[Rfam]
RNA sequence: AGGUGUCCCAAAGGGGUGACCUGAGAACACAAAAUGCAUUAGUUAUGCUAAUACUAUUAAUAUAGCAACUAAUGCCUUGUGUGUUCUCAGGCAUCACACCUUUGGGGUGACC
Numbered sequence: 001a002g003g004u005g006u007c008c009c010a011a012a013g014g015g016g017u018g019a020c021c022u023g024a025g026a027a028c029a030c031a032a033a034a035u036g037c038a039u040u041a042g043u044u045a046u047g048c049u050a051a052u053a054c055u056a057u058u059a060a061u062a063u064a065g066c067a068a069c070u071a072a073u074g075c076c077u078u079g080u081g082u083g084u085u086c087u088c089a090g091g092c093a094u095c096a097c098a099c100c101u102u103u104g105g106g107g108u109g110a111c112c
Stems, first nucleotide, its partner, number of pairs: 007106002011102004016097004023088009
RNA: MIR398 microRNA precursor family
Organism: Prunus persica